[Rfam]
RNA sequence: GUGGCUGGACGUUCAGUCGGGAAACCUAUCUAGGAAACUCUGUCAUUCGACAGGGCAGCUCUUGGAGCUUAAGUCA
Numbered sequence: 001g002u003g004g005c006u007g008g009a010c011g012u013u014c015a016g017u018c019g020g021g022a023a024a025c026c027u028a029u030c031u032a033g034g035a036a037a038c039u040c041u042g043u044c045a046u047u048c049g050a051c052a053g054g055g056c057a058g059c060u061c062u063u064g065g066a067g068c069u070u071a072a073g074u075c076a
Stems, first nucleotide, its partner, number of pairs: 038055007057069005
The family of this 76-nucleotide RNA sequence from Legionella beliardensis is "RAGATH-32 RNA". The match comes from Rfam's covariance-model search (81 bits). The family's consensus secondary structure is taken from published work.